[Rfam]
RNA sequence: CACUAUUGAUGAGGCGCACGGAUCAUAACUAGCCUAAAUAGACUGCCUGUAAGCGGGUUUAGGUGAAAGGGUGACGUGCCGAGAUUCGUCUAAGUUACAGCUUAGAAGUUUUGGACCUAGAGGUUAAGAGCUAUGGGUCUGUCAUUAUUUUAAUAAUGGAGUGCAUCACUUGUU
Numbered sequence: 001c002a003c004u005a006u007u008g009a010u011g012a013g014g015c016g017c018a019c020g021g022a023u024c025a026u027a028a029c030u031a032g033c034c035u036a037a038a039u040a041g042a043c044u045g046c047c048u049g050u051a052a053g054c055g056g057g058u059u060u061a062g063g064u065g066a067a068a069g070g071g072u073g074a075c076g077u078g079c080c081g082a083g084a085u086u087c088g089u090c091u092a093a094g095u096u097a098c099a100g101c102u103u104a105g106a107a108g109u110u111u112u113g114g115a116c117c118u119a120g121a122g123g124u125u126a127a128g129a130g131c132u133a134u135g136g137g138u139c140u141g142u143c144a145u146u147a148u149u150u151u152a153a154u155a156a157u158g159g160a161g162u163g164c165a166u167c168a169c170u171u172g173u174u
Stems, first nucleotide, its partner, number of pairs: 007168005016079005024071001032064008083112002087108001089106006113140007121132002142159007